[Rfam]
About this RNA: Shown here is a 128-nucleotide RNA sequence from Brachybacterium endophyticum, a member of the family "FMN riboswitch aptamer (RFN element)". From the family's description: The RFN element is a highly conserved domain that is found frequently in the 5'-untranslated regions of prokaryotic mRNAs that encode for flavin mononucleotide (FMN) biosynthesis and transport proteins. The family's consensus secondary structure is taken from published work.

RNA sequence: CCACAUUCUCCGGGGUCAGUGAAAGUCUGAACCGGCGGUGACAGUCCGCGACCCGGCUCCUCGACGAGCCGGUUGAUCUGGUGGAAAUCCAGGACCGACGGUAAUAGUCCGGAUGGGAGGAGAUGUGG
Number, nucleotide and partner (000 for none) at each position: 001c000002c000003a126004c125005a124006u123007u122008c000009u120010c119011c000012g000013g000014g000015g000016u000017c029018a028019g027020u000021g000022a000023a000024a000025g000026u000027c019028u018029g017030a000031a108032c107033c097034g096035g049036c048037g047038g046039u000040g000041a000042c000043a000044g095045u094046c038047c037048g036049c035050g000051a000052c000053c072054c071055g000056g000057c000058u000059c000060c000061u000062c000063g000064a000065c000066g000067a000068g000069c000070c000071g054072g053073u000074u000075g000076a000077u093078c092079u091080g090081g089082u000083g000084g000085a000086a000087a000088u000089c081090c080091a079092g078093g077094a045095c044096c034097g033098a000099c111100g110101g109102u000103a000104a000105u000106a000107g032108u031109c101110c100111g099112g000113a000114u000115g000116g000117g000118a000119g010120g009121a000122g007123a006124u005125g004126u003127g000128g000